[Rfam]
RNA sequence: UAACAUGACGCGGCUAGAGUUUUAGGACUCGUGGAUGGUUGUUUUAACAACUUGGUUAAGCCGAGGUAAGGCGAGAGGAAUUGCCGCAGUUCUAAGUCUGCCUCGGUUUUGCUAG
Dot-bracket structure: .........[[[[[..(((((....)))))........((((....)))).(((((....((((((((.(......((((..]]]]]..))))...).))))))))....)))))
About this RNA
Shown here is a 115-nucleotide sequence from Vibrio tasmaniensis, a member of the family "RT-12 RNA". The organism belongs to Vibrio tasmaniensis, within Bacteria. It is annotated as a small RNA. The sequence is in the family's curated seed alignment.